This 47-nucleotide RNA sequence belongs to the Rfam family "PreQ1 (pre queuosine) riboswitch aptamer".
A search with the family's covariance model found it, with a score of 40 bits.
The family has 43 seed sequences and 873 matches in Rfam 15.1.

RNA sequence: GCGGGAGAGGUUCAUAGCUGAUACCCUCUAUAAAAAACUAUGGAUAC
Numbered sequence: 001g002c003g004g005g006a007g008a009g010g011u012u013c014a015u016a017g018c019u020g021a022u023a024c025c026c027u028c029u030a031u032a033a034a035a036a037a038c039u040a041u042g043g044a045u046a047c
Base pairs, nucleotide, nucleotide: 006029007028008027009026010025015040016039
Rfam describes the family as follows. This family is a bacterial riboswitch that binds to the metabolite preQ1, an intermediate in the biosynthesis of the modified nucleoside queuosine from GTP. One example of this riboswitch is located in the leader of the Bacillus subtilis ykvJKLM (queCDEF) operon which encodes four genes necessary for queuosine production. PreQ1 binding to the riboswitch aptamer is thought to induce premature transcription termination within the leader to down-regulate expression of these genes.